The family of this 67-nucleotide sequence is "Pistol ribozyme". It is one of the family's seed sequences. The literature on the family includes a 2015 paper in Nat Chem Biol by Weinberg et al., "New classes of self-cleaving ribozymes revealed by comparative genomics analysis". Pairs were carried over by alignment from the consensus structure, which is taken from published work.
RNA sequence: AGAGGUCACAGCCUCUUAAAAUAGACAUUAAGCUGUGAGCGUCUCCCGUAUUAACGGGAGGGUUGUA
Numbered sequence: 001a002g003a004g005g006u007c008a009c010a011g012c013c014u015c016u017u018a019a020a021a022u023a024g025a026c027a028u029u030a031a032g033c034u035g036u037g038a039g040c041g042u043c044u045c046c047c048g049u050a051u052u053a054a055c056g057g058g059a060g061g062g063u064u065g066u067a
Stems, first nucleotide, its partner, number of pairs: 001016004006038006025066003032040001042061008